[Rfam]
RNA sequence: UAAAAGGGUGCUCGCUACUUCAAUAGCGCGUCGUGUCGGUUAACCCCGUCAUGAUGGGGUAUGGCCAUCAAGACAUACCCAGUACAUAAUUUUUGUGAACGCGAGGCUGUUGGCUGCCAAUUACGCACCGGCGCCUCC
Numbered sequence: 001u002a003a004a005a006g007g008g009u010g011c012u013c014g015c016u017a018c019u020u021c022a023a024u025a026g027c028g029c030g031u032c033g034u035g036u037c038g039g040u041u042a043a044c045c046c047c048g049u050c051a052u053g054a055u056g057g058g059g060u061a062u063g064g065c066c067a068u069c070a071a072g073a074c075a076u077a078c079c080c081a082g083u084a085c086a087u088a089a090u091u092u093u094u095g096u097g098a099a100c101g102c103g104a105g106g107c108u109g110u111u112g113g114c115u116g117c118c119a120a121u122u123a124c125g126c127a128c129c130g131g132c133g134c135c136u137c138c
Stems, first nucleotide, its partner, number of pairs: 008085005013028005029056007037048003057080007104136004109132005115127003

Rfam assigns this 138-nucleotide sequence from Temnothorax curvispinosus to the family "U11 spliceosomal RNA". Rfam 15.1 lists 2,595 matches to the family in 1,202 species. NCBI's taxonomy places the organism under Eukaryota, Eumetazoa, Mandibulata, Hymenoptera, Temnothorax. It is annotated as a spliceosomal small nuclear RNA. The family's consensus secondary structure is taken from published work. The match comes from Rfam's covariance-model search (95 bits).